RNA: mir-320 microRNA precursor family
Organism: Callithrix jacchus
RNA sequence: GCUUGUCUUCCCAGUUCUUCCUGGAGUUGGGAAAAGCUGGGUUGAGAGGGCAAAAAAAAAAUGUU
Numbered sequence: 001g002c003u004u005g006u007c008u009u010c011c012c013a014g015u016u017c018u019u020c021c022u023g024g025a026g027u028u029g030g031g032a033a034a035a036g037c038u039g040g041g042u043u044g045a046g047a048g049g050g051c052a053a054a055a056a057a058a059a060a061a062u063g064u065u
Stems, first nucleotide, its partner, number of pairs: 003048002006045002010041005018033006